[Rfam]
The family of this 102-nucleotide RNA sequence from Lysinibacillus telephonicus is "Purine riboswitch aptamer". From the family's description: Riboswitches are metabolite binding domains within certain messenger RNAs that serve as precision sensors for their corresponding targets.
RNA sequence: AAAUAAUAAAUAGGCUGCCUUCAUAUAAGUCCGAUAAUAUGGUUCGGAUGUUUCUACUAAGUUACCUGAAAUAACUUAUCUAUGACGGCGGGCAUUGCUAUG
Numbered sequence: 001a002a003a004u005a006a007u008a009a010a011u012a013g014g015c016u017g018c019c020u021u022c023a024u025a026u027a028a029g030u031c032c033g034a035u036a037a038u039a040u041g042g043u044u045c046g047g048a049u050g051u052u053u054c055u056a057c058u059a060a061g062u063u064a065c066c067u068g069a070a071a072u073a074a075c076u077u078a079u080c081u082a083u084g085a086c087g088g089c090g091g092g093c094a095u096u097g098c099u100a101u102g
Stems, first nucleotide, its partner, number of pairs: 018088002021085005029049006058078007